[Rfam]
Shown here is a 133-nucleotide RNA from Kluyvera genomosp. 3, a member of the family "isrN Hfq binding RNA". It scores 93 bits against the family's covariance model. The organism belongs to Kluyvera, within Bacteria. The family's RNA type in Rfam is small RNA.
RNA sequence: CGAAUGCAGUUUAUCGCGUAUCGGGCUGAUAAAAAUAGACCGUCCUGCUCAGCGAUAACGUCCUGCAGGCCUGGCGUAAACUCAUGGCAAAUUGCGCCGUCAGAUAGCUGACGGGUUCACGCUUUCAGUGGUC
Numbered sequence: 001c002g003a004a005u006g007c008a009g010u011u012u013a014u015c016g017c018g019u020a021u022c023g024g025g026c027u028g029a030u031a032a033a034a035a036u037a038g039a040c041c042g043u044c045c046u047g048c049u050c051a052g053c054g055a056u057a058a059c060g061u062c063c064u065g066c067a068g069g070c071c072u073g074g075c076g077u078a079a080a081c082u083c084a085u086g087g088c089a090a091a092u093u094g095c096g097c098c099g100u101c102a103g104a105u106a107g108c109u110g111a112c113g114g115g116u117u118c119a120c121g122c123u124u125u126c127a128g129u130g131g132u133c
Stems, first nucleotide, its partner, number of pairs: 019106004024101002042071001044069005052061003074097004110133003114129001